Shown here is a 79-nucleotide sequence from Triticum turgidum, a member of the family "Small nucleolar RNA Z155". It is annotated as a C/D-box small nucleolar RNA. The match comes from Rfam's covariance-model search (73 bits). A reference for the family is Chen et al. (2003), "The high diversity of snoRNAs in plants: identification and comparative study of 120 snoRNA genes from Oryza sativa", Nucleic Acids Res.
RNA sequence: AGUUGAUGUGAUGAUAAUCUUCAACAGAAAAUCAUAUUUAGUGUUGACCAAAUUACAGACUACAAUUAUCUGAUCAGCU
Numbered sequence: 001a002g003u004u005g006a007u008g009u010g011a012u013g014a015u016a017a018u019c020u021u022c023a024a025c026a027g028a029a030a031a032u033c034a035u036a037u038u039u040a041g042u043g044u045u046g047a048c049c050a051a052a053u054u055a056c057a058g059a060c061u062a063c064a065a066u067u068a069u070c071u072g073a074u075c076a077g078c079u
Base pairs, nucleotide, nucleotide: 001079002078003077004076005075006074